The family of this 97-nucleotide RNA is "DUF3800-V RNA". The family's RNA type in Rfam is small RNA.
[Rfam]
RNA sequence: UGAAGCUUACAAUAAUAACUUUUGGGACGCUUCGGUGCUCCCCCGGAAUAUCUGGGGUCUCAGCCGAGGAAUCACGAAUCCAAGAGACGUGGCUUCA
Numbered sequence: 001u002g003a004a005g006c007u008u009a010c011a012a013u014a015a016u017a018a019c020u021u022u023u024g025g026g027a028c029g030c031u032u033c034g035g036u037g038c039u040c041c042c043c044c045g046g047a048a049u050a051u052c053u054g055g056g057g058u059c060u061c062a063g064c065c066g067a068g069g070a071a072u073c074a075c076g077a078a079u080c081c082a083a084g085a086g087a088c089g090u091g092g093c094u095u096c097a
Stems, first nucleotide, its partner, number of pairs: 001097006009090002023082004028076002030069007041057006